Rfam assigns this 67-nucleotide sequence from Albula goreensis to the family "mir-338 microRNA precursor family". NCBI's taxonomy places the organism under Eukaryota, Euteleostomi, Actinopterygii, Albulidae, Albula. The match comes from Rfam's covariance-model search (63 bits).
RNA sequence: CUCGUAACAAUAUCCUGCUGCUGUCAGAGUGAGAUGACAGCUCCAGCAUCAGUGAUGUUGUUGCUAG
Numbered sequence: 001c002u003c004g005u006a007a008c009a010a011u012a013u014c015c016u017g018c019u020g021c022u023g024u025c026a027g028a029g030u031g032a033g034a035u036g037a038c039a040g041c042u043c044c045a046g047c048a049u050c051a052g053u054g055a056u057g058u059u060g061u062u063g064c065u066a067g
Base pairs, nucleotide, nucleotide: 006062007061008060009059010058012056013055014054015052016051017050019048020047021046022045023044